[Rfam]
RNA: Singlet oxygen resistance RNA X
Organism: Roseinatronobacter ekhonensis
RNA sequence: AUCCCUACUGCGUCGGGGUCUAGACGCAGAGUUCCUCCCUGUUGGACUGUCCGGGCACGCUUUGCCCGGACUUUUUU
Number, nucleotide and partner (000 for none) at each position: 001a000002u000003c000004c000005c000006u000007a000008c029009u028010g027011c026012g025013u024014c023015g000016g000017g000018g000019u000020c000021u000022a000023g014024a013025c012026g011027c010028a009029g008030a000031g000032u000033u000034c000035c000036u000037c000038c000039c000040u000041g000042u000043u000044g000045g000046a000047c000048u000049g071050u070051c069052c068053g067054g066055g065056c064057a000058c000059g000060c000061u000062u000063u000064g056065c055066c054067c053068g052069g051070a050071c049072u000073u000074u000075u000076u000077u000